[Rfam]
RNA: U1 spliceosomal RNA
Organism: Trichobilharzia regenti
Nucleotides: 160
Stems, first nucleotide, its partner, number of pairs: 012120003017047001019045001021043001023042005049088004056081003060077004090115001092113001093111001094109001097106002136159004141152004
Number, partner (000 for none) and nucleotide at each position: 001000g002000a003000a004000c005000u006000u007000a008000c009000u010000u011000g012120g013119c014118g015000c016000c017047g018000a019045g020000a021043c022000c023042a024041g025040g026039g027038u028000g029000a030000u031000c032000a033000a034000g035000a036000a037000u038027g039026c040025c041024c042023u043021g044000a045019c046000c047017c048000c049088g050087g051086g052085u053000g054000g055000a056081g057080g058079c059000u060077u061076g062075c063074c064000u065000u066000u067000g068000c069000a070000c071000u072000u073000c074063g075062g076061c077060g078000u079058g080057u081056u082000g083000a084000a085052g086051c087050c088049u089000g090115c091000u092113a093111c094109g095000a096000u097106c098105c099000c100000u101000a102000a103000u104000u105098g106097g107000a108000c109094u110000c111093g112000c113092u114000c115090g116000g117000a118014c119013g120012c121000g122000u123000a124000g125000a126000u127000u128000u129000u130000g131000c132000u133000a134000g135000u136159g137158g138157g139156g140000a141152g142151g143150u144149c145000u146000u147000c148000g149144g150143a151142u152141u153000a154000a155000a156139c157138c158137u159136u160000u